Shown here is a 122-nucleotide RNA, a member of the family "LOOT RNA". Rfam's curators put it in the seed alignment.
RNA sequence: GGCCUAAACUUUACGAGCUACUUGUAAGGCAUGGUCAAAAAUACGCUACGAACAUAAAGAACCCAUCAUCAGGGCGUUCGUAGCGUUAUACGGGGAAACCCGUAUAGGGGUCGCAAGACCCU
Number, nucleotide and partner (000 for none) at each position: 001g036002g035003c034004c033005u000006a000007a000008a000009c029010u028011u027012u026013a025014c024015g023016a022017g021018c000019u000020a000021c017022u016023u015024g014025u013026a012027a011028g010029g009030c000031a000032u000033g004034g003035u002036c001037a000038a000039a000040a000041a000042u000043a000044c085045g084046c083047u082048a081049c080050g079051a078052a077053c076054a000055u000056a000057a000058a000059g000060a000061a000062c074063c073064c072065a000066u000067c000068a000069u000070c000071a000072g064073g063074g062075c000076g053077u052078u051079c050080g049081u048082a047083g046084c045085g044086u000087u106088a105089u104090a103091c102092g101093g100094g099095g000096a000097a000098a000099c094100c093101c092102g091103u090104a089105u088106a087107g122108g121109g120110g119111u118112c117113g000114c000115a000116a000117g112118a111119c110120c109121c108122u107
By type it is a small RNA.